[Rfam]
RNA: Fungal signal recognition particle RNA
Organism: Colletotrichum orbiculare
RNA sequence: CGGCUGUAAUGGUCAAGCGGUUGAAGGCUUUCGUUAUUCUUCUCCUGCUACCCCAUACACAUUGGAACCCCUCAGUGGCGCCCAGUGCGAAUGCUGCGGUGGUCGUCCACUCGUACGGGCAACCUACGAUUGCUGCGACGUCCCUAAGCAAUGAAGAUGAUACUUGAGGGAGGUUUCACUCUGCAGAGGCAUCUUCACCGUCGCAUGGCGUGCUGGAUUACGAUCGCUGAGGGCUUGGGGUAGUAGCUGAAGAUGGAGAUGUCAACAGCCAAUUU
Numbered sequence: 001c002g003g004c005u006g007u008a009a010u011g012g013u014c015a016a017g018c019g020g021u022u023g024a025a026g027g028c029u030u031u032c033g034u035u036a037u038u039c040u041u042c043u044c045c046u047g048c049u050a051c052c053c054c055a056u057a058c059a060c061a062u063u064g065g066a067a068c069c070c071c072u073c074a075g076u077g078g079c080g081c082c083c084a085g086u087g088c089g090a091a092u093g094c095u096g097c098g099g100u101g102g103u104c105g106u107c108c109a110c111u112c113g114u115a116c117g118g119g120c121a122a123c124c125u126a127c128g129a130u131u132g133c134u135g136c137g138a139c140g141u142c143c144c145u146a147a148g149c150a151a152u153g154a155a156g157a158u159g160a161u162a163c164u165u166g167a168g169g170g171a172g173g174u175u176u177c178a179c180u181c182u183g184c185a186g187a188g189g190c191a192u193c194u195u196c197a198c199c200g201u202c203g204c205a206u207g208g209c210g211u212g213c214u215g216g217a218u219u220a221c222g223a224u225c226g227c228u229g230a231g232g233g234c235u236u237g238g239g240g241u242a243g244u245a246g247c248u249g250a251a252g253a254u255g256g257a258g259a260u261g262u263c264a265a266c267a268g269c270c271a272a273u274u275u
Stems, first nucleotide, its partner, number of pairs: 002014003016273001019270005026263003030259002034256003040251003045246009070233003073229005079222002082216008091206004096201004101143001102139005108132002111129005117124002144148001152197007163188003170181003